[Rfam]
RNA sequence: UUAAUCAAAAGGGAUGGUACUCCCUAUAACCGCCAGAAAUGGCUGAUGGUGCCUGUUAUGUA
Numbered sequence: 001u002u003a004a005u006c007a008a009a010a011g012g013g014a015u016g017g018u019a020c021u022c023c024c025u026a027u028a029a030c031c032g033c034c035a036g037a038a039a040u041g042g043c044u045g046a047u048g049g050u051g052c053c054u055g056u057u058a059u060g061u062a
Stems, first nucleotide, its partner, number of pairs: 010025004016053006032043004
The family of this 62-nucleotide RNA sequence from Atopostipes suicloacalis is "Fluoride riboswitch aptamer (crcB RNA motif)".
The family's consensus secondary structure is taken from published work.
Taxonomically the source falls in Atopostipes suicloacalis (Bacteria, Bacillati, Bacillota, Bacilli).